Rfam assigns this 517-nucleotide RNA from Cyanomargarita calcarea to the family "Bacterial RNase P class A".
[Rfam]
RNA sequence: AAAGUCGGCGCAGGCGGUUACAGAUCGGUCUAAUAAACUGGUUUGAGGAAAGUCCGGGCUCCCGAAAGACCAGACUUGCUGGAUAACGCCCAGUGCGAGCGAUCGCGAGGAUAGUGCCACAGAAAGAUACCGCCUUUCUUAAAGUUAGGAGUUAGGAGUGAAGAGUUAGGAGUUAGGAGUGAGGAGUUAGGAGUUAGGAGUUAUUAACUCAUAACCCAUAAUUCAUAACUCAUAAUUCAUAACUCAUAAUUCAUAACUCAUAACUAAGUUUGGUAAGGGUGCAAAGGUGCGGUAAGAGCGCACCAGCAACAUCGAGAGGUGUUGGCUCGGUAAACCCCGGUUGGGAGCAAGGCGAGAGGAACUAUGGUUGGUCUUUUACCAGUUCCGUCAAUGAGAGCCGCUAGAGGUGUUUGGUAACAGGCAUCCCAGAUAGAUUACUGCCCUCAAAAUGUAAAAAUGUUAUUUGUAAUGUUUCUACACUAGAGAACAGAACCCGGCUUAUGUCCGUACUUUCUCC
Numbered sequence: 001a002a003a004g005u006c007g008g009c010g011c012a013g014g015c016g017g018u019u020a021c022a023g024a025u026c027g028g029u030c031u032a033a034u035a036a037a038c039u040g041g042u043u044u045g046a047g048g049a050a051a052g053u054c055c056g057g058g059c060u061c062c063c064g065a066a067a068g069a070c071c072a073g074a075c076u077u078g079c080u081g082g083a084u085a086a087c088g089c090c091c092a093g094u095g096c097g098a099g100c101g102a103u104c105g106c107g108a109g110g111a112u113a114g115u116g117c118c119a120c121a122g123a124a125a126g127a128u129a130c131c132g133c134c135u136u137u138c139u140u141a142a143a144g145u146u147a148g149g150a151g152u153u154a155g156g157a158g159u160g161a162a163g164a165g166u167u168a169g170g171a172g173u174u175a176g177g178a179g180u181g182a183g184g185a186g187u188u189a190g191g192a193g194u195u196a197g198g199a200g201u202u203a204u205u206a207a208c209u210c211a212u213a214a215c216c217c218a219u220a221a222u223u224c225a226u227a228a229c230u231c232a233u234a235a236u237u238c239a240u241a242a243c244u245c246a247u248a249a250u251u252c253a254u255a256a257c258u259c260a261u262a263a264c265u266a267a268g269u270u271u272g273g274u275a276a277g278g279g280u281g282c283a284a285a286g287g288u289g290c291g292g293u294a295a296g297a298g299c300g301c302a303c304c305a306g307c308a309a310c311a312u313c314g315a316g317a318g319g320u321g322u323u324g325g326c327u328c329g330g331u332a333a334a335c336c337c338c339g340g341u342u343g344g345g346a347g348c349a350a351g352g353c354g355a356g357a358g359g360a361a362c363u364a365u366g367g368u369u370g371g372u373c374u375u376u377u378a379c380c381a382g383u384u385c386c387g388u389c390a391a392u393g394a395g396a397g398c399c400g401c402u403a404g405a406g407g408u409g410u411u412u413g414g415u416a417a418c419a420g421g422c423a424u425c426c427c428a429g430a431u432a433g434a435u436u437a438c439u440g441c442c443c444u445c446a447a448a449a450u451g452u453a454a455a456a457a458u459g460u461u462a463u464u465u466g467u468a469a470u471g472u473u474u475c476u477a478c479a480c481u482a483g484a485g486a487a488c489a490g491a492a493c494c495c496g497g498c499u500u501a502u503g504u505c506c507g508u509a510c511u512u513u514c515u516c517c
Base pairs, nucleotide, nucleotide: 001513002512003511004510005509008506010504012502013442014441015440016439017438018437021045022044023043024042025041026040027039028038029037050500051499052498054497055496056495057494058493059347060346061345062344068375069374073342074341075340077339078338079093080092081091082090094108095106096105097104098103109337110336114335115334116331117330118329130278131277132274133273134272138268139267140266286304287303288302289301290300291299306326307324308323309322310321311320312319313318351399352398353397358386359385360384361383362382363381366380367379368378370376406425407424408423409422410421411420412419413418
Dot-bracket structure: (((((..(.(.(((((((..(((((((((.......)))))))))....[[[.[[[[[((((.....[[...(((.((((((.......))))(((((....)))).)((...(((((...........(((((...(((.............................................................................................................................)))...)))..)).......((((((.......)))))).((((((((....))))))).)..)))..))))))))).))))...(((....((((((..(((.(...]]).)))))))))..........)))......((((((((....))))))))...........))))))..................................................]]]]]]]].).).)..)))))....
The base pairs follow the family's consensus structure, which is taken from published work. Taxonomically the source falls in Cyanomargarita calcarea (Bacteria, Cyanophyceae, Nostocales, Cyanomargarita). It is annotated as a ribozyme.